[Rfam]
RNA sequence: CCGCCUCUGGGAGCAAGCAGUCCCUUGCACCUUAACUAUCUUCUUCACUUUUUCUGCUAAAACCUUCUGUUUUUAGCUGAUCAUUAACGGGUGGAAUAUUA
Numbered sequence: 001c002c003g004c005c006u007c008u009g010g011g012a013g014c015a016a017g018c019a020g021u022c023c024c025u026u027g028c029a030c031c032u033u034a035a036c037u038a039u040c041u042u043c044u045u046c047a048c049u050u051u052u053u054c055u056g057c058u059a060a061a062a063c064c065u066u067c068u069g070u071u072u073u074u075a076g077c078u079g080a081u082c083a084u085u086a087a088c089g090g091g092u093g094g095a096a097u098a099u100u101a
Base pairs, nucleotide, nucleotide: 036094037093038092039091040090053080054079056077057076058075059074
Rfam assigns this 101-nucleotide RNA from Triticum aestivum to the family "Small nucleolar RNA snoR99". Gene Ontology terms of the family: nucleolus and RNA processing. The match comes from Rfam's covariance-model search (55 bits). The family's RNA type in Rfam is H/ACA-box small nucleolar RNA. A reference for the family is Marker et al. (2002), "Experimental RNomics: identification of 140 candidates for small non-messenger RNAs in the plant Arabidopsis thaliana", Curr Biol. Taxonomically the source falls in Triticum (Eukaryota, Embryophyta, Spermatophyta, Triticeae).